[Rfam]
RNA sequence: GGUUUCGUAGUGUAGUGGUUAGCACUCCAGACUUUGAAUCUGGCAACCUGGGUUCAAAUCCCGGCGAGACCU
Numbered sequence: 001g002g003u004u005u006c007g008u009a010g011u012g013u014a015g016u017g018g019u020u021a022g023c024a025c026u027c028c029a030g031a032c033u034u035u036g037a038a039u040c041u042g043g044c045a046a047c048c049u050g051g052g053u054u055c056a057a058a059u060c061c062c063g064g065c066g067a068g069a070c071c072u
Base pairs, nucleotide, nucleotide: 001071002070003069004068005067006066007065010025011024012023013022027043028042029041030040031039048064049063050062051061052060